This 64-nucleotide RNA from Sodalis praecaptivus belongs to the Rfam family "Fluoride riboswitch aptamer (crcB RNA motif)". The family's consensus secondary structure is taken from published work. A search with the family's covariance model found it, with a score of 51 bits. Its family is annotated with response to fluoride and positive regulation of gene expression in the Gene Ontology.

RNA sequence: GACCCAUCAGGAGAUGACAUUCCUCCUUAUAACCGCCGUUCUGGCUGAUGAUGUCUACGUUCGC
Numbered sequence: 001g002a003c004c005c006a007u008c009a010g011g012a013g014a015u016g017a018c019a020u021u022c023c024u025c026c027u028u029a030u031a032a033c034c035g036c037c038g039u040u041c042u043g044g045c046u047g048a049u050g051a052u053g054u055c056u057a058c059g060u061u062c063g064c
Stems, first nucleotide, its partner, number of pairs: 010026004016055006035045003